[Rfam]
RNA sequence: UUUUCCGUGUUGAACCUGGAAUAACAAGGAUAUUAACGGAAUGACCAGUUUUGUUUGUUUGAUCAUCCACGCAGCAAUGGCGUAAGACGUAUUGAUCGCUCAAACAGUUAGCGGGCUGCGGGUUGCAGUCCUUACCGGUACAUAUACUGUACGAAUUUUAGCGGGUAGACAGCGAGCGCAACGGGAAACAUCCGUGCUUACGCAAGUAAGAUGCUAAGACCUCUACCCUCUAAAAGAUGACGAGUAUAAAUGGAAUCUUCUCUGGAGAGUUAUCCCAGGUUGUUCCCCAAAUAAUUGCGCUGUGGUUCCGUUUGAAACACAGGCUACCGACACUCUGCGCCUCUUAAACGAGCGGACAACCGUGAGGUUGGCGACGUGAAUAGUCACGAGGCCAUCGGUCUACCCCGGAAAGGCAAUACUCUGCUCGCAGCUUAGUCGUCAA
Numbered sequence: 001u002u003u004u005c006c007g008u009g010u011u012g013a014a015c016c017u018g019g020a021a022u023a024a025c026a027a028g029g030a031u032a033u034u035a036a037c038g039g040a041a042u043g044a045c046c047a048g049u050u051u052u053g054u055u056u057g058u059u060u061g062a063u064c065a066u067c068c069a070c071g072c073a074g075c076a077a078u079g080g081c082g083u084a085a086g087a088c089g090u091a092u093u094g095a096u097c098g099c100u101c102a103a104a105c106a107g108u109u110a111g112c113g114g115g116c117u118g119c120g121g122g123u124u125g126c127a128g129u130c131c132u133u134a135c136c137g138g139u140a141c142a143u144a145u146a147c148u149g150u151a152c153g154a155a156u157u158u159u160a161g162c163g164g165g166u167a168g169a170c171a172g173c174g175a176g177c178g179c180a181a182c183g184g185g186a187a188a189c190a191u192c193c194g195u196g197c198u199u200a201c202g203c204a205a206g207u208a209a210g211a212u213g214c215u216a217a218g219a220c221c222u223c224u225a226c227c228c229u230c231u232a233a234a235a236g237a238u239g240a241c242g243a244g245u246a247u248a249a250a251u252g253g254a255a256u257c258u259u260c261u262c263u264g265g266a267g268a269g270u271u272a273u274c275c276c277a278g279g280u281u282g283u284u285c286c287c288c289a290a291a292u293a294a295u296u297g298c299g300c301u302g303u304g305g306u307u308c309c310g311u312u313u314g315a316a317a318c319a320c321a322g323g324c325u326a327c328c329g330a331c332a333c334u335c336u337g338c339g340c341c342u343c344u345u346a347a348a349c350g351a352g353c354g355g356a357c358a359a360c361c362g363u364g365a366g367g368u369u370g371g372c373g374a375c376g377u378g379a380a381u382a383g384u385c386a387c388g389a390g391g392c393c394a395u396c397g398g399u400c401u402a403c404c405c406c407g408g409a410a411a412g413g414c415a416a417u418a419c420u421c422u423g424c425u426c427g428c429a430g431c432u433u434a435g436u437c438g439u440c441a442a
Base pairs, nucleotide, nucleotide: 003041004040005039006038007037008036014031016029017028051107052106053105054104055103056102057101062096063095064094065093069090070089071088074081075080113433114432115431116430117429118428119427120426121425122424123423132411133410135408136407137406138405297324298323300322301321302320303319306316307315308314326399327398328397329396330395339392340391341390342389343388353373354372357370358369359368360367361366

The family of this 442-nucleotide RNA sequence from Kluyvera cryocrescens is "RNase E 5' UTR element". Lineage of the source: Bacteria > Pseudomonadati > Pseudomonadota > Gammaproteobacteria > Kluyvera. A reference for the family is Diwa et al. (2000), "An evolutionarily conserved RNA stem-loop functions as a sensor that directs feedback regulation of RNase E gene expression", Genes Dev. Rfam describes the family as follows. This family represents a conserved element found in the 5' UTR of RNase E mRNA. RNase E is a key regulatory enzyme in the pathway of mRNA degradation in E. coli that is able to auto-regulate the degradation of its own mRNA in response to changes in RNase E activity. Rfam classes the family as a cis-regulatory element.